[Rfam]
RNA sequence: AGGCUAAUGAUGAUAAUUAAAUAAUCUUAGCGGAUUUCAGUGAGAUUUUAUUGUCAAUGAUCUGAUUGUUACACACACUGAGGCCU
Numbered sequence: 001a002g003g004c005u006a007a008u009g010a011u012g013a014u015a016a017u018u019a020a021a022u023a024a025u026c027u028u029a030g031c032g033g034a035u036u037u038c039a040g041u042g043a044g045a046u047u048u049u050a051u052u053g054u055c056a057a058u059g060a061u062c063u064g065a066u067u068g069u070u071a072c073a074c075a076c077a078c079u080g081a082g083g084c085c086u
Stems, first nucleotide, its partner, number of pairs: 001086005
Small nucleolar RNA R11/Z151: an 86-nucleotide RNA sequence from Theobroma umbraticum. The match comes from Rfam's covariance-model search (87 bits). Rfam links the family to the GO terms RNA processing and nucleolus. The organism belongs to Theobroma, within Eukaryota. Pairs were carried over by alignment from the consensus structure, which was predicted with PFOLD.